[Rfam]
RNA sequence: AGAUGAAGGAAACACCCCGUCCACAGGGCACUGUGGGCGAGUCCCGGCCGUGGCCCUCCCGGCUUCGACCUGGUCGUGCCCUCGCGCACACACCCGGGGCCCCCGGCUCCGGAUCUCCUCACCGAUCGGA
Numbered sequence: 001a002g003a004u005g006a007a008g009g010a011a012a013c014a015c016c017c018c019g020u021c022c023a024c025a026g027g028g029c030a031c032u033g034u035g036g037g038c039g040a041g042u043c044c045c046g047g048c049c050g051u052g053g054c055c056c057u058c059c060c061g062g063c064u065u066c067g068a069c070c071u072g073g074u075c076g077u078g079c080c081c082u083c084g085c086g087c088a089c090a091c092a093c094c095c096g097g098g099g100c101c102c103c104c105g106g107c108u109c110c111g112g113a114u115c116u117c118c119u120c121a122c123c124g125a126u127c128g129g130a
Stems, first nucleotide, its partner, number of pairs: 004121003009117002018039009043073002046070002049067002052064003076089004094112008122129002
RNA: Streptomyces RNA 5676